Small nucleolar RNA U6-53/MBII-28: a 114-nucleotide RNA sequence from Conger conger.
The organism belongs to Conger, within Eukaryota.

RNA sequence: CUCCAGUGAUGAGCUUGCCAUGCUAAUACUGAUGCACCAGGCACGGCCGCGUGUCUGUCUGGGUGUAAGUGAGUUAAUCUCGCCUUCUCACACUGACGGUGUGCGCUGAGGAGA
Numbered sequence: 001c002u003c004c005a006g007u008g009a010u011g012a013g014c015u016u017g018c019c020a021u022g023c024u025a026a027u028a029c030u031g032a033u034g035c036a037c038c039a040g041g042c043a044c045g046g047c048c049g050c051g052u053g054u055c056u057g058u059c060u061g062g063g064u065g066u067a068a069g070u071g072a073g074u075u076a077a078u079c080u081c082g083c084c085u086u087c088u089c090a091c092a093c094u095g096a097c098g099g100u101g102u103g104c105g106c107u108g109a110g111g112a113g114a
Stems, first nucleotide, its partner, number of pairs: 001113004044057003